Notes
A member of the RNA family "DUF3800-II RNA", 68 nucleotides long.
RNA sequence: GAAACAAGAAGCUUGGGACAAAUUCCAGUGGAAGAGUCUCUAUUUUGAGACUACUAAGCUUUCUGACC
Numbered sequence: 001g002a003a004a005c006a007a008g009a010a011g012c013u014u015g016g017g018a019c020a021a022a023u024u025c026c027a028g029u030g031g032a033a034g035a036g037u038c039u040c041u042a043u044u045u046u047g048a049g050a051c052u053a054c055u056a057a058g059c060u061u062u063c064u065g066a067c068c
Base pairs, nucleotide, nucleotide: 007064008063009062010061012058013057014056015055016054023033024032025031026030035052036051037050038049039048040047